[Rfam]
RNA sequence: CGCCCUGCGGGUGAAAGCCCGACGCCGAAUGGUGGAGCGAGGGGUCAGCAGAGGCCGUAGUAGUCGGCGGCCGCCCGCCAAGGGCGCAAACCCCGACGAAGGGC
Numbered sequence: 001c002g003c004c005c006u007g008c009g010g011g012u013g014a015a016a017g018c019c020c021g022a023c024g025c026c027g028a029a030u031g032g033u034g035g036a037g038c039g040a041g042g043g044g045u046c047a048g049c050a051g052a053g054g055c056c057g058u059a060g061u062a063g064u065c066g067g068c069g070g071c072c073g074c075c076c077g078c079c080a081a082g083g084g085c086g087c088a089a090a091c092c093c094c095g096a097c098g099a100a101g102g103g104c
Base pairs, nucleotide, nucleotide: 001027002026005024008021009020010019011018012017045052046051054104055103056102063097064096065095066094067093
RNA: Group II catalytic intron D1-D4-1